[Rfam]
A member of the RNA family "PhotoRC-II RNA", 99 nucleotides long.
RNA sequence: AUAAACUUACACACUGCUCCCAACCGAGACCUACGUAGGCAGUAUAAUACAUCGUCUCUCAUAUCCUGUAGUGAGGGAUUACAGGAAAUAAGUUUCGCA
Numbered sequence: 001a002u003a004a005a006c007u008u009a010c011a012c013a014c015u016g017c018u019c020c021c022a023a024c025c026g027a028g029a030c031c032u033a034c035g036u037a038g039g040c041a042g043u044a045u046a047a048u049a050c051a052u053c054g055u056c057u058c059u060c061a062u063a064u065c066c067u068g069u070a071g072u073g074a075g076g077g078a079u080u081a082c083a084g085g086a087a088a089u090a091a092g093u094u095u096c097g098c099a
Stems, first nucleotide, its partner, number of pairs: 014042005019035001026058005064086007